Shown here is a 138-nucleotide RNA from Lynx pardinus, a member of the family "U4 spliceosomal RNA". Rfam classes the family as a spliceosomal small nuclear RNA.
RNA sequence: AGCUUUGCACAGUGGCAGUAUCAUAGCCAAUGAGGUUUAUCUGAGGCAUGAUUACUGCUAAUUGAAAACUUUUCCCAGUAUCUUGCCAGGAUGAUUUAAAAUAUAGUCAGCAUUGGCAAUUUUUGAAAAAAAGAAAUU
Numbered sequence: 001a002g003c004u005u006u007g008c009a010c011a012g013u014g015g016c017a018g019u020a021u022c023a024u025a026g027c028c029a030a031u032g033a034g035g036u037u038u039a040u041c042u043g044a045g046g047c048a049u050g051a052u053u054a055c056u057g058c059u060a061a062u063u064g065a066a067a068a069c070u071u072u073u074c075c076c077a078g079u080a081u082c083u084u085g086c087c088a089g090g091a092u093g094a095u096u097u098a099a100a101a102u103a104u105a106g107u108c109a110g111c112a113u114u115g116g117c118a119a120u121u122u123u124u125g126a127a128a129a130a131a132a133g134a135a136a137u138u
Stems, first nucleotide, its partner, number of pairs: 020052005026047003034042002085117003088113001090111001092109005133138001